[Rfam]
RNA: ZMP/ZTP riboswitch aptamer (pfl RNA motif)
Organism: Clostridium sp. CAG:62
RNA sequence: UUAGUUCCAUACGACUGGCGGAAACUAUAUGAAAAUCAUAUAGAGUGAGAGAACUCACAGGGAGUGUGGAUUUGUAUGAAUUGCCGACCGCCUGGGCGACCGUU
Numbered sequence: 001u002u003a004g005u006u007c008c009a010u011a012c013g014a015c016u017g018g019c020g021g022a023a024a025c026u027a028u029a030u031g032a033a034a035a036u037c038a039u040a041u042a043g044a045g046u047g048a049g050a051g052a053a054c055u056c057a058c059a060g061g062g063a064g065u066g067u068g069g070a071u072u073u074g075u076a077u078g079a080a081u082u083g084c085c086g087a088c089c090g091c092c093u094g095g096g097c098g099a100c101c102g103u104u
Stems, first nucleotide, its partner, number of pairs: 003073002006070007015061002017092005046057004081099005